[Rfam]
RNA: Potassium channel RNA editing signal
Organism: Trichoplusia ni
RNA sequence: CUCAGGUACGGAGACAUGGUACCAGGCACCAUAGCUGGCAAGAUAGUGGGCGGUGUGUGCUCCCUCUCCGGAGUGCUGGUGAUCGCGCUGCCCGUGCCUGUCAUCGUCUCCAAC
Dot-bracket structure: .(..(..((((.((((.(..((..............((((........((...........))..........))))................)).).)))).))))..)..).